[Rfam]
RNA: Small nucleolar RNA SNORD112
Organism: Marmota monax
RNA sequence: UGGACCAGUGAUGAGAUCAUGUUAUGAAGCAGAGUUUAUGAUUAAUCCAGUUCUGUGCACCUGAGGUCCAAU
Numbered sequence: 001u002g003g004a005c006c007a008g009u010g011a012u013g014a015g016a017u018c019a020u021g022u023u024a025u026g027a028a029g030c031a032g033a034g035u036u037u038a039u040g041a042u043u044a045a046u047c048c049a050g051u052u053c054u055g056u057g058c059a060c061c062u063g064a065g066g067u068c069c070a071a072u
Stems, first nucleotide, its partner, number of pairs: 001070006